[Rfam]
RNA sequence: AAGACCGUGGUUCAUCAACCAUCCCACGUAAAAAAACUAGGAGGAU
Numbered sequence: 001a002a003g004a005c006c007g008u009g010g011u012u013c014a015u016c017a018a019c020c021a022u023c024c025c026a027c028g029u030a031a032a033a034a035a036a037c038u039a040g041g042a043g044g045a046u
Stems, first nucleotide, its partner, number of pairs: 006028005015039001
Shown here is a 46-nucleotide sequence from Atopobacter sp. AH10, a member of the family "PreQ1 (pre queuosine) riboswitch aptamer". Lineage of the source: Bacteria > Bacillati > Lactobacillales > Carnobacteriaceae > Atopobacter. It scores 44 bits against the family's covariance model. The literature on the family includes a 2004 paper in J Biol Chem by Reader et al., "Identification of four genes necessary for biosynthesis of the modified nucleoside queuosine". Rfam describes the family as follows. This family is a bacterial riboswitch that binds to the metabolite preQ1, an intermediate in the biosynthesis of the modified nucleoside queuosine from GTP. One example of this riboswitch is located in the leader of the Bacillus subtilis ykvJKLM (queCDEF) operon which encodes four genes necessary for queuosine production. PreQ1 binding to the riboswitch aptamer is thought to induce premature transcription termination within the leader to down-regulate expression of these genes. Pairs were carried over by alignment from the consensus structure.